[Rfam]
Nucleotides: 077
Base pairs, nucleotide, nucleotide: 008018009017010016011015041062042061043060044059045058046057048055049054
Number, partner (000 for none) and nucleotide at each position: 001000c002000g003000u004000c005000c006000c007000u008018g009017c010016c011015u012000u013000u014000c015011a016010g017009g018008c019000a020000u021000c022000c023000u024000c025000u026000c027000c028000u029000a030000a031000a032000a033000c034000u035000c036000a037000a038000u039000a040000a041062g042061g043060u044059c045058g046057g047000c048055c049054c050000c051000g052000c053000g054049g055048g056000a057046c058045c059044g060043g061042c062041c063000u064000u065000c066000u067000u068000u069000u070000u071000u072000g073000c074000u075000c076000g077000c
A member of the RNA family "Makes More Granules Regulator RNA (mmgR)" from Sphingobium sp. TCM1, 77 nucleotides long. A search with the family's covariance model found it, with a score of 42 bits. Rfam's curators write: SuhB later renamed mmgR (makes more granules regulator) was a putative non-coding RNA found multiple times in the Agrobacterium tumefaciens genome and related alpha-proteobacteria. The base pairs follow the family's consensus structure.